[Rfam]
RNA sequence: GACAAAAGAUAAAAAUUAUACACGUAUAAUUUUUGUCUCUCUAGCUUCGCUAGUUCGCUACCGACACCAAUCCAGGUGCGCCGCCAUUACUUGCUCCCGUUUUGGCAGCCUUUGGCUGACCUACUUGGUCACUGCCGCACAAAAGCAGCAGAGUUCGCCGAGGACGGUUUUCAGCUCUUUGGCUGUGUGGGUUGAACUGGACCACUUAGUCACCGGUGCCAUAAAGGCCUGGAGUUCGCUAAGCUCCCGUUUAGCCUACAGUGCAGAUAGUGGCUUUUUG
Numbered sequence: 001g002a003c004a005a006a007a008g009a010u011a012a013a014a015a016u017u018a019u020a021c022a023c024g025u026a027u028a029a030u031u032u033u034u035g036u037c038u039c040u041c042u043a044g045c046u047u048c049g050c051u052a053g054u055u056c057g058c059u060a061c062c063g064a065c066a067c068c069a070a071u072c073c074a075g076g077u078g079c080g081c082c083g084c085c086a087u088u089a090c091u092u093g094c095u096c097c098c099g100u101u102u103u104g105g106c107a108g109c110c111u112u113u114g115g116c117u118g119a120c121c122u123a124c125u126u127g128g129u130c131a132c133u134g135c136c137g138c139a140c141a142a143a144a145g146c147a148g149c150a151g152a153g154u155u156c157g158c159c160g161a162g163g164a165c166g167g168u169u170u171u172c173a174g175c176u177c178u179u180u181g182g183c184u185g186u187g188u189g190g191g192u193u194g195a196a197c198u199g200g201a202c203c204a205c206u207u208a209g210u211c212a213c214c215g216g217u218g219c220c221a222u223a224a225a226g227g228c229c230u231g232g233a234g235u236u237c238g239c240u241a242a243g244c245u246c247c248c249g250u251u252u253a254g255c256c257u258a259c260a261g262u263g264c265a266g267a268u269a270g271u272g273g274c275u276u277u278u279u280g
Stems, first nucleotide, its partner, number of pairs: 007038014041053005062080002065078004108183003117173003134149002137146002
Dot-bracket structure: ......((((((((((((((....))))))))))))))..(((((...)))))........((.((((......))))))...........................(((......(((..............((.((......)).)).....................))).......))).................................................................................................
RNA: Deltacoronavirus 5'UTR